[Rfam]
RNA sequence: AGCCAUGUGGUGAGCACAAAGCGAACUAUUCUUUCGCCUUUUACUAAAGAAUACCGUGUGCUCUCCAUGCCAAGUGGCAUACGCCUAUUUUUGGAGGGUCCCAUUCACGAAUGGGCCC
Number, nucleotide and partner (000 for none) at each position: 001a000002g000003c077004c076005a075006u074007g000008u067009g066010g065011u000012g063013a062014g061015c060016a059017c058018a057019a000020a000021g000022c000023g000024a000025a000026c000027u053028a052029u051030u050031c049032u048033u047034u046035c000036g000037c000038c000039u000040u000041u000042u000043a000044c000045u000046a034047a033048a032049g031050a030051a029052u028053a027054c000055c000056g000057u018058g017059u016060g015061c014062u013063c012064u000065c010066c009067a008068u000069g000070c000071c000072a000073a000074g006075u005076g004077g003078c000079a000080u000081a000082c000083g000084c000085c000086u000087a000088u000089u000090u000091u000092u000093g000094g000095a000096g000097g118098g117099u000100c115101c114102c113103a000104u000105u000106c000107a000108c000109g000110a000111a000112u000113g102114g101115g100116c000117c098118c097

Rfam assigns this 118-nucleotide RNA sequence from Raphanus sativus to the family "U5 spliceosomal RNA".
It scores 89 bits against the family's covariance model.
U5 RNA is a component of both types of known spliceosome. The precise function of this molecule is unknown, though it is known that the 5' loop is required for splice site selection and p220 binding, and that both the 3' stem-loop and the Sm site are important for Sm protein binding and cap methylation.
On this family, see Zwieb, Nucleic Acids Res 1997: "The uRNA database".
Pairs were carried over by alignment from the consensus structure, which is taken from published work.